[Rfam]
RNA sequence: GAGACACCCCUGUGGAACAGGACUUGCUUCAGUGGGGUUUUGGUGCUCACCGUGUUUGUCCCUUGAGUGUGUCACU
Dot-bracket structure: (.(((((.(.((.((.(((.(((......(.(((((((....)).))))).).)))))).)).)).).))))).).
The family of this 76-nucleotide sequence from Cnephaeus nilssonii is "mir-9229 microRNA precursor family". The organism belongs to Cnephaeus, within Eukaryota. It scores 72 bits against the family's covariance model. The family's consensus secondary structure was predicted with RNAalifold.